[Rfam]
RNA sequence: GAGCCGAUAGCUCAGCUGGUAGAGCAACUGACUUUUAAUCAGUAGGUCCAGGGUUCGAAUCCCUGUCGGCUCA
Dot-bracket structure: (((((((..((((........)))).(((((.......))))).....(((((.......)))))))))))).
Background:
A member of the RNA family "tRNA" from Maricaulis virginensis, 73 nucleotides long. The family's consensus secondary structure is taken from published work. It scores 78 bits against the family's covariance model.